RNA sequence: AUAUGUUUAUCGGGGUGCCGCUUGCGGCUGAGAUUAUACCCAUUGAACCUGUCGGGUUAGGACCUGCGUAGGGAGUUAGCGUGUAAUUUUG
Numbered sequence: 001a002u003a004u005g006u007u008u009a010u011c012g013g014g015g016u017g018c019c020g021c022u023u024g025c026g027g028c029u030g031a032g033a034u035u036a037u038a039c040c041c042a043u044u045g046a047a048c049c050u051g052u053c054g055g056g057u058u059a060g061g062a063c064c065u066g067c068g069u070a071g072g073g074a075g076u077u078a079g080c081g082u083g084u085a086a087u088u089u090u091g
Stems, first nucleotide, its partner, number of pairs: 006079002009076002012041003016036001017028004048072004053066004
Dot-bracket structure: .....((.((.(((.(((((....)))).......)..)))......((((.((((......))))..))))..)).))............